[Rfam]
RNA sequence: CCAGCACUUUCACAGGCCCUCCUCCGGGCUGUGGGGCCAGGAUUUGGUAGCUGGUGCUUAGAGAAAGCCCUGGGUUGCAUCCUUGCCCUGGGACUGUGCCAAGGGCAGCCAUCACUCACUGGGACAGAG
Numbered sequence: 001c002c003a004g005c006a007c008u009u010u011c012a013c014a015g016g017c018c019c020u021c022c023u024c025c026g027g028g029c030u031g032u033g034g035g036g037c038c039a040g041g042a043u044u045u046g047g048u049a050g051c052u053g054g055u056g057c058u059u060a061g062a063g064a065a066a067g068c069c070c071u072g073g074g075u076u077g078c079a080u081c082c083u084u085g086c087c088c089u090g091g092g093a094c095u096g097u098g099c100c101a102a103g104g105g106c107a108g109c110c111a112u113c114a115c116u117c118a119c120u121g122g123g124a125c126a127g128a129g
Stems, first nucleotide, its partner, number of pairs: 003058006013046003018041003022036004068123003073117002076114002079112002083108005089101003
Dot-bracket structure: ..((((((....(((..(((.((((.......))))..)))..)))......)))))).........(((..((.((.((..(((((.(((.......)))..)))))..)))).))...)))......
The record is a 129-nucleotide RNA from Enhydra lutris, which matches "Small nucleolar RNA SNORA30/SNORA37 family" in Rfam. Taxonomically the source falls in Enhydra lutris (Eukaryota, Opisthokonta, Metazoa, Craniata). The family has 11 seed sequences and 407 matches in Rfam 15.1. A search with the family's covariance model found it, with a score of 105 bits. The family's consensus secondary structure was predicted with RNAfold. The literature on the family includes a 2001 paper in EMBO J by Huttenhofer et al., "RNomics: an experimental approach that identifies 201 candidates for novel, small, non-messenger RNAs in mouse". Rfam's curators write: The members of this family belong to the H/ACA class of snoRNAs that guide the sites of modification of uridines to pseudouridines.